[Rfam]
Overview: Shown here is a 32-nucleotide RNA from Flavobacterium cellulosilyticum, a member of the family "DUF805b RNA". Taxonomically the source falls in Flavobacterium (Bacteria, Pseudomonadati, Flavobacteriia, Flavobacteriales).

RNA sequence: AAAGCGAUAGCCGAAAAGCUCAAGAGUAGGCA
Numbered sequence: 001a002a003a004g005c006g007a008u009a010g011c012c013g014a015a016a017a018g019c020u021c022a023a024g025a026g027u028a029g030g031c032a
Stems, first nucleotide, its partner, number of pairs: 003020003010031003
About this RNA
It scores 38 bits against the family's covariance model.